[Rfam]
Shown here is a 389-nucleotide RNA sequence from Cadophora malorum, a member of the family "Nuclear RNase P". By type it is a ribozyme. NCBI's taxonomy places the organism under Eukaryota, Ascomycota, leotiomyceta, Ploettnerulaceae, Cadophora. Rfam 15.1 lists 3,848 matches to the family in 1,862 species.
RNA sequence: AACAGAUAUGUGUUGGUCUACCCACACAUAUCAGAUCUGUUUUCAGAUCGUACCUUUGCAUAUGAGAAAUUCGGAGUACUCUUCACCAUCACCUUCCCUCCGUUCCUGCCUUCUCGAAGGUGGUGCGCGGAGACAGGUCUGCCCGCGAGGGUUCGGCGCGAUUUUCGCGUCUGCAAUUGGCAUCAGAAAAGCAGGGCUUGGUCUCACCUCACAUACUGCCUCUUUACUGGGGCGGGAAAGGGGAGAGUGCUAAGUACCCUAUGGGAGAGCCGUUGCGAAGAUUGUGUGUGCUGAGGCAUGACACUUAAGUGCAAUACGCAGCGUGCCUCUACUCUUCGCUGCCUUGUGUGGCGGAGGGUGGGGUACAAUUCGAUUCCGAUUACUCUGUU
Dot-bracket structure: .....(((((.......................((((((....)))))).........)))))........(((((....((((........................................................((((....))))..(((((.......))))).((((..(((...........(((..............................................................)))........))).))))))))..........................................(((((((..............................))))))).......)))))...........
Numbered sequence: 001a002a003c004a005g006a007u008a009u010g011u012g013u014u015g016g017u018c019u020a021c022c023c024a025c026a027c028a029u030a031u032c033a034g035a036u037c038u039g040u041u042u043u044c045a046g047a048u049c050g051u052a053c054c055u056u057u058g059c060a061u062a063u064g065a066g067a068a069a070u071u072c073g074g075a076g077u078a079c080u081c082u083u084c085a086c087c088a089u090c091a092c093c094u095u096c097c098c099u100c101c102g103u104u105c106c107u108g109c110c111u112u113c114u115c116g117a118a119g120g121u122g123g124u125g126c127g128c129g130g131a132g133a134c135a136g137g138u139c140u141g142c143c144c145g146c147g148a149g150g151g152u153u154c155g156g157c158g159c160g161a162u163u164u165u166c167g168c169g170u171c172u173g174c175a176a177u178u179g180g181c182a183u184c185a186g187a188a189a190a191g192c193a194g195g196g197c198u199u200g201g202u203c204u205c206a207c208c209u210c211a212c213a214u215a216c217u218g219c220c221u222c223u224u225u226a227c228u229g230g231g232g233c234g235g236g237a238a239a240g241g242g243g244a245g246a247g248u249g250c251u252a253a254g255u256a257c258c259c260u261a262u263g264g265g266a267g268a269g270c271c272g273u274u275g276c277g278a279a280g281a282u283u284g285u286g287u288g289u290g291c292u293g294a295g296g297c298a299u300g301a302c303a304c305u306u307a308a309g310u311g312c313a314a315u316a317c318g319c320a321g322c323g324u325g326c327c328u329c330u331a332c333u334c335u336u337c338g339c340u341g342c343c344u345u346g347u348g349u350g351g352c353g354g355a356g357g358g359u360g361g362g363g364u365a366c367a368a369u370u371c372g373a374u375u376c377c378g379a380u381u382a383c384u385c386u387g388u389u
Stems, first nucleotide, its partner, number of pairs: 006063005034049006072378005081280004141152004155171005173276004179271003193260003323366007
From the family's description: Ribonuclease P (RNase P) is a ubiquitous endoribonuclease, found in archaea, bacteria and eukarya as well as chloroplasts and mitochondria. Its best characterised activity is the generation of mature 5'-ends of tRNAs by cleaving the 5'-leader elements of precursor-tRNAs.